This 300-nucleotide RNA from Belnapia rosea belongs to the Rfam family "Alphaproteobacteria transfer-messenger RNA".
Pairs were carried over by alignment from the consensus structure, which is taken from published work.
From the family's description: Bacterial tmRNA, also known as 10Sa RNA or SsrA, is named for its dual tRNA and mRNA-like properties.
It is annotated as a non-coding RNA gene.
Lineage of the source: Bacteria > Pseudomonadati > Pseudomonadota > Acetobacterales > Belnapia.

RNA sequence: CCUCUCGAAUUCCGCGCCCGGACCGCGUAUCUCUAUCGUGCUGCCUCGGCAGCUAUGGUGAUAAACACGGUCUGGAAUAAUCGUUGCGGACCCGGGGGCAGUGCCCGGCGCCUCCACCAUCACGGGGGGGCGAAACAGGCUCGACGCGCGUGGUAAAGAGACCGCUUUUGCCCGGCAUGGUUCCGCCGUCAUCGGGCCGAUUCUAAGUGCGAACGAUAACAGCCGUGAGGCUGUCGCACUCGCUGCCUAGGAAUAGGUAAGCGCGGCUCGGGGGGCGCCGGGCAACAGAAGCCCCCCACU
Numbered sequence: 001c002c003u004c005u006c007g008a009a010u011u012c013c014g015c016g017c018c019c020g021g022a023c024c025g026c027g028u029a030u031c032u033c034u035a036u037c038g039u040g041c042u043g044c045c046u047c048g049g050c051a052g053c054u055a056u057g058g059u060g061a062u063a064a065a066c067a068c069g070g071u072c073u074g075g076a077a078u079a080a081u082c083g084u085u086g087c088g089g090a091c092c093c094g095g096g097g098g099c100a101g102u103g104c105c106c107g108g109c110g111c112c113u114c115c116a117c118c119a120u121c122a123c124g125g126g127g128g129g130g131c132g133a134a135a136c137a138g139g140c141u142c143g144a145c146g147c148g149c150g151u152g153g154u155a156a157a158g159a160g161a162c163c164g165c166u167u168u169u170g171c172c173c174g175g176c177a178u179g180g181u182u183c184c185g186c187c188g189u190c191a192u193c194g195g196g197c198c199g200a201u202u203c204u205a206a207g208u209g210c211g212a213a214c215g216a217u218a219a220c221a222g223c224c225g226u227g228a229g230g231c232u233g234u235c236g237c238a239c240u241c242g243c244u245g246c247c248u249a250g251g252a253a254u255a256g257g258u259a260a261g262c263g264c265g266g267c268u269c270g271g272g273g274g275g276c277g278c279c280g281g282g283c284a285a286c287a288g289a290a291g292c293c294c295c296c297c298a299c300u
Base pairs, nucleotide, nucleotide: 040053041052042051043050044049057172058171059170060169061168068164069163070162071161072160073159082150083149084148086147087146088145092108093107094106095105096104109132110131111130112129113128114127115126173188174187175186176185178199179198180197182196183195184194264280265279266278267277270297271296272295273294274293275292